[Rfam]
RNA sequence: CUUCAGCGAGCCCAGCCACAGCGGCUGGCCCUCGGCACGUUCCUGCCCGUACGUGGCGAUCAGCGCCUGUGCCUC
Number, nucleotide and partner (000 for none) at each position: 001c000002u000003u000004c000005a000006g000007c000008g000009a000010g000011c000012c000013c000014a026015g025016c024017c023018a000019c000020a000021g000022c000023g017024g016025c015026u014027g000028g000029c000030c000031c071032u000033c069034g000035g000036c000037a000038c065039g064040u000041u000042c000043c000044u059045g000046c000047c056048c055049g054050u000051a000052c000053g000054u049055g048056g047057c000058g000059a044060u000061c000062a000063g000064c039065g038066c000067c000068u000069g033070u000071g031072c000073c000074u000075c000
ASpks TB sRNA: a 75-nucleotide sequence from Streptomyces sp. Rer75. The match comes from Rfam's covariance-model search (86 bits). It is annotated as an antisense RNA. The base pairs follow the family's consensus structure, which is taken from published work.